[Rfam]
RNA sequence: UUUCGCGCAGGAGAUGGCAUGCCUCCCGGGGAGCUGAUGUAACCUCGAACCGCCUUCAGGGCUAAUGAUGUCUACCGGCAA
Numbered sequence: 001u002u003u004c005g006c007g008c009a010g011g012a013g014a015u016g017g018c019a020u021g022c023c024u025c026c027c028g029g030g031g032a033g034c035u036g037a038u039g040u041a042a043c044c045u046c047g048a049a050c051c052g053c054c055u056u057c058a059g060g061g062c063u064a065a066u067g068a069u070g071u072c073u074a075c076c077g078g079c080a081a
Base pairs, nucleotide, nucleotide: 010026011025012024013023016072017071018070019069020068052062053061054060
Annotation: A member of the RNA family "Fluoride riboswitch aptamer (crcB RNA motif)" from Sulfuriferula plumbiphila, 81 nucleotides long.